[Rfam]
This 98-nucleotide RNA from Streptococcus infantis belongs to the Rfam family "PreQ1-II (pre queuosine) riboswitch aptamer". A reference for the family is Kang et al. (2014), "Structural determinants for ligand capture by a class II preQ1 riboswitch", Proc Natl Acad Sci U S A. Rfam's curators write: preQ1-II riboswitch was first reported for Weinberg et al. 2007 it was recognised in Streptococcaceae and Lactococcus families in 5' untranslated regions of genes of a membrane protein classified as COG4708 or DUF988. Lineage of the source: Bacteria > Bacillati > Bacilli > Streptococcus > Streptococcus infantis.
Nucleotides: 098
Base pairs, nucleotide, nucleotide: 018032019031020030021029022028034059035058036057037056038055039054040053046090047089048088049087050086051085070082071081072080073079
Number, partner (000 for none) and nucleotide at each position: 001000u002000g003000u004000g005000c006000u007000a008000u009000a010000c011000u012000u013000g014000u015000a016000a017000a018032g019031u020030u021029g022028a023000c024000u025000u026000g027000c028022u029021c030020a031019a032018c033000c034059c035058u036057u037056g038055g039054u040053g041000c042000u043000u044000a045000g046090c047089u048088u049087c050086u051085u052000u053040c054039a055038c056037c057036a058035a059034g060000c061000a062000u063000a064000u065000u066000a067000g068000a069000c070082g071081c072080g073079g074000g075000a076000u077000a078000g079073c080072c081071g082070c083000u084000a085051a086050a087049g088048g089047a090046g091000a092000a093000a094000a095000u096000a097000u098000g